[Rfam]
RNA sequence: AGGCUGCAUAUGAUGACAACAUAGUUCAGCAGAUGAGCUGUGAUGAUCACAGUUACUGUCUUUCGCUCCUAUCUGAUGCAGUCU
Numbered sequence: 001a002g003g004c005u006g007c008a009u010a011u012g013a014u015g016a017c018a019a020c021a022u023a024g025u026u027c028a029g030c031a032g033a034u035g036a037g038c039u040g041u042g043a044u045g046a047u048c049a050c051a052g053u054u055a056c057u058g059u060c061u062u063u064c065g066c067u068c069c070u071a072u073c074u075g076a077u078g079c080a081g082u083c084u
Base pairs, nucleotide, nucleotide: 004081005080006079007078008077
A member of the RNA family "Small nucleolar RNA snR60/Z15/Z230/Z193/J17" from Nothoprocta perdicaria, 84 nucleotides long.
The pairing is the family consensus, mapped onto this sequence.
The organism belongs to Nothoprocta, within Eukaryota.
The family is grouped with related families in Rfam's "SNORD77 clan".